A member of the RNA family "Photosynthesis regulatory RNA1" from Pleurocapsa sp. CCALA 161, 75 nucleotides long. The family's consensus secondary structure was predicted with CMfinder. A reference for the family is Georg et al. (2014), "The small regulatory RNA SyR1/PsrR1 controls photosynthetic functions in cyanobacteria", Plant Cell. Gene Ontology terms of the family: regulation of photosynthesis and regulation of translation. Rfam describes the family as follows. Formerly known as Syr1 discovered in Synechocystis sp PCC 6803, is a regulatory factor controlling photosynthetic functions.

RNA sequence: UAAAAGUUGCUUCAAUUUCAUCAACAUUGAUUUCUCCUGAAUAUUAACUUCCUCGGCUAGUCACCCGAGGUUUUU
Numbered sequence: 001u002a003a004a005a006g007u008u009g010c011u012u013c014a015a016u017u018u019c020a021u022c023a024a025c026a027u028u029g030a031u032u033u034c035u036c037c038u039g040a041a042u043a044u045u046a047a048c049u050u051c052c053u054c055g056g057c058u059a060g061u062c063a064c065c066c067g068a069g070g071u072u073u074u075u
Base pairs, nucleotide, nucleotide: 043071051070052069053068054067055066056065